[Rfam]
RNA sequence: UAGAUACUUCGGGGCAGGGUGCAAUUCCCUACUGGCGGUAAAGUCCGCGAACCUUUUUAGGCCGAUUUGGUGACUGAUGUAUGAGAGCAGCAGAAUUCCAAAACCAACAGUAUAGUCUGGAUGAAAGAAGUAAGUA
Numbered sequence: 001u002a003g004a005u006a007c008u009u010c011g012g013g014g015c016a017g018g019g020u021g022c023a024a025u026u027c028c029c030u031a032c033u034g035g036c037g038g039u040a041a042a043g044u045c046c047g048c049g050a051a052c053c054u055u056u057u058u059a060g061g062c063c064g065a066u067u068u069g070g071u072g073a074c075u076g077a078u079g080u081a082u083g084a085g086a087g088c089a090g091c092a093g094a095a096u097u098c099c100a101a102a103a104c105c106a107a108c109a110g111u112a113u114a115g116u117c118u119g120g121a122u123g124a125a126a127g128a129a130g131u132a133a134g135u136a
Base pairs, nucleotide, nucleotide: 005132006131007130008129009128010127017029018028019027031116032115033106034105035048036047037046038045043104044103052061053060066102067101068100069099070098108119109118110117
Notes: Rfam assigns this 136-nucleotide RNA from Lachnospiraceae bacterium KM106-2 to the family "FMN riboswitch aptamer (RFN element)". From the family's description: The RFN element is a highly conserved domain that is found frequently in the 5'-untranslated regions of prokaryotic mRNAs that encode for flavin mononucleotide (FMN) biosynthesis and transport proteins. This element is a metabolite-dependent riboswitch that directly binds FMN in the absence of proteins. In Bacillus subtilis, the riboswitch most likely controls gene expression by causing premature transcription termination within the 5' untranslated region of the ribDEAHT operon and precluding access to the ribosome-binding site of ypaA mRNA.The FMN riboswitch structure, reported in present an FMN-bound six-stem junction, adopts a butterfly-like scaffold, stapled together by opposingly directed but nearly identically folded peripheral domains. The base pairs follow the family's consensus structure, which is taken from published work. Lineage of the source: Bacteria > Bacillati > Clostridia > Lachnospirales > Lachnospiraceae. Gene Ontology term of the family: FMN binding.